Background:
The record is a 151-nucleotide sequence from Olea europaea, which matches "MIR530 microRNA precursor family" in Rfam. Gene Ontology terms of the family: RISC complex and miRNA-mediated post-transcriptional gene silencing.
[Rfam]
RNA sequence: GCCAAGAUGUUGCCUUUAUCUGCAUUUACACCUGCACCUUCUUGCUGUUAACUCUCUUCUCUUUUAGAUUUCUUCACUCAUACGAAUUGAAAUUAGAAGCAAGAUUAGGAAAGGAGGCGCAGAUGUAUAUGCAGGUGAAUGCUAUUUUGGC
Numbered sequence: 001g002c003c004a005a006g007a008u009g010u011u012g013c014c015u016u017u018a019u020c021u022g023c024a025u026u027u028a029c030a031c032c033u034g035c036a037c038c039u040u041c042u043u044g045c046u047g048u049u050a051a052c053u054c055u056c057u058u059c060u061c062u063u064u065u066a067g068a069u070u071u072c073u074u075c076a077c078u079c080a081u082a083c084g085a086a087u088u089g090a091a092a093u094u095a096g097a098a099g100c101a102a103g104a105u106u107a108g109g110a111a112a113g114g115a116g117g118c119g120c121a122g123a124u125g126u127a128u129a130u131g132c133a134g135g136u137g138a139a140u141g142c143u144a145u146u147u148u149g150g151c
Base pairs, nucleotide, nucleotide: 001151002150003149004148005147006146007145008144009143012142013141015139016138017137018136019135020134021133022132023131024130025129027127028126029125030124032122033121034120035119037117038116039115040114041113042112043111